[Rfam]
RNA sequence: GAAUUUUGAUUAACGCCCGGUAUUCGCCGGGCCAACUGGAAG
Numbered sequence: 001g002a003a004u005u006u007u008g009a010u011u012a013a014c015g016c017c018c019g020g021u022a023u024u025c026g027c028c029g030g031g032c033c034a035a036c037u038g039g040a041a042g
Stems, first nucleotide, its partner, number of pairs: 015032007

Notes: Shown here is a 42-nucleotide RNA from Jejuibacter calystegiae, a member of the family "nuoG RNA". The family's consensus secondary structure is taken from published work. The organism belongs to Jejuibacter, within Bacteria.